[Rfam]
RNA sequence: UGCAUAUGCCUUUGUAUUUUGUUUAACUGUAGACAAAGACUUCCUCAUCUGUGGGCAACAAAUGAAUCCUUGUGUUGCAACCCAGAACUCAUUAUUCAGUAUGUAUUUUGUAUAUUUAAGAAGGAACAUA
Numbered sequence: 001u002g003c004a005u006a007u008g009c010c011u012u013u014g015u016a017u018u019u020u021g022u023u024u025a026a027c028u029g030u031a032g033a034c035a036a037a038g039a040c041u042u043c044c045u046c047a048u049c050u051g052u053g054g055g056c057a058a059c060a061a062a063u064g065a066a067u068c069c070u071u072g073u074g075u076u077g078c079a080a081c082c083c084a085g086a087a088c089u090c091a092u093u094a095u096u097c098a099g100u101a102u103g104u105a106u107u108u109u110g111u112a113u114a115u116u117u118a119a120g121a122a123g124g125a126a127c128a129u130a
Base pairs, nucleotide, nucleotide: 001057002056003055005053006052007051008050011047014040015039017038018037019036020035021034022033067126069124070123073121075119076118077117083110084109085108086107087106090103091102092101
RNA: Small nucleolar RNA SNORA40
Organism: Mus spicilegus